Record summary
Shown here is a 66-nucleotide sequence from Mesocricetus auratus, a member of the family "Small nucleolar RNA SNORD109A". The family has 7 seed sequences and 412 matches in Rfam 15.1. The family's RNA type in Rfam is C/D-box small nucleolar RNA. Pairs were carried over by alignment from the consensus structure, which was predicted with WAR. Rfam's curators write: Humans have two copies of the SNORD109 gene, SNORD109A and SNORD109B. The organism belongs to Mesocricetus, within Eukaryota. A reference for the family is Runte et al. (2001), "The IC-SNURF-SNRPN transcript serves as a host for multiple small nucleolar RNA species and as an antisense RNA for UBE3A", Hum Mol Genet.
[Rfam]
RNA sequence: GAAUCAUUGAUGAGAAGAAGUAUCUGAGGAUGGUCAUUAACUCAUACAAAUGUCAAUCUGAGGUCC
Numbered sequence: 001g002a003a004u005c006a007u008u009g010a011u012g013a014g015a016a017g018a019a020g021u022a023u024c025u026g027a028g029g030a031u032g033g034u035c036a037u038u039a040a041c042u043c044a045u046a047c048a049a050a051u052g053u054c055a056a057u058c059u060g061a062g063g064u065c066c
Stems, first nucleotide, its partner, number of pairs: 001066001003064003